Notes: This 250-nucleotide RNA sequence from Paenibacillus albilobatus belongs to the Rfam family "BsrG". From the family's description: bsrE, bsrG and bsrH pair through intermolecular interactions with antisense sRNAs. They form type I toxin/antitoxin system that includes an mRNA encoding for a short, toxic peptide (bsrE, bsrG and bsrH) and an antitoxin that is comprised of an antisense RNA. bsrG encodes a 39-amino-acid toxin, and the 180 nucleotide antisense sRNA called SR4 acts as the antitoxin (they overlap by 123 nucleotides). SR4 interaction with the 3'UTR of bsrG RNA promotes bsrG degradation and inhibits its translation. BsrG interferes with cell envelope biosynthesis, causes membrane invaginations and delocalisation of the cell wall synthesis and initiates autolysis. bsrE RNA encodes 30 amino-acid toxin peptide.

[Rfam]
RNA sequence: CGUAACGACAGAUAGCUUAUGGGCGGUCGGCUAAUCUCCCGGAAGGGAGGUGAUGCCCAUGGAGGUUAAGGACGCGCUAACCUUGAUGAUCAGCUUCGGCAUGUUCAUUCUUGCGCUGCUUACCUACUUGAAAAAGAAAUAGACCGCCCUCGCCAAAGGUAUGCGGUCUACCAUACAUCUAGACACCUAUUAAGCUGACCGCCCUUACAGCGGCUGUUGUGCAGAGAGUAAGGAUGUUCCCGCAUCCUUG
Numbered sequence: 001c002g003u004a005a006c007g008a009c010a011g012a013u014a015g016c017u018u019a020u021g022g023g024c025g026g027u028c029g030g031c032u033a034a035u036c037u038c039c040c041g042g043a044a045g046g047g048a049g050g051u052g053a054u055g056c057c058c059a060u061g062g063a064g065g066u067u068a069a070g071g072a073c074g075c076g077c078u079a080a081c082c083u084u085g086a087u088g089a090u091c092a093g094c095u096u097c098g099g100c101a102u103g104u105u106c107a108u109u110c111u112u113g114c115g116c117u118g119c120u121u122a123c124c125u126a127c128u129u130g131a132a133a134a135a136g137a138a139a140u141a142g143a144c145c146g147c148c149c150u151c152g153c154c155a156a157a158g159g160u161a162u163g164c165g166g167u168c169u170a171c172c173a174u175a176c177a178u179c180u181a182g183a184c185a186c187c188u189a190u191u192a193a194g195c196u197g198a199c200c201g202c203c204c205u206u207a208c209a210g211c212g213g214c215u216g217u218u219g220u221g222c223a224g225a226g227a228g229u230a231a232g233g234a235u236g237u238u239c240c241c242g243c244a245u246c247c248u249u250g
Base pairs, nucleotide, nucleotide: 001221002220003219005217006216007215013197014196015195016194017193018192021149022148023147025144027142032053034051036049037048038047039046040045061123063121064120065119066118075088076087099114100113101112160175161174162173199213200212201211202210229250230249231248232247233246234245235244236243237242
Rfam 15.1 lists 614 matches to the family in 343 species.
A search with the family's covariance model found it, with a score of 63 bits.
For this family Rfam cites "Novel small RNA-encoding genes in the intergenic regions of Bacillus subtilis" (Saito et al., Gene, 2008).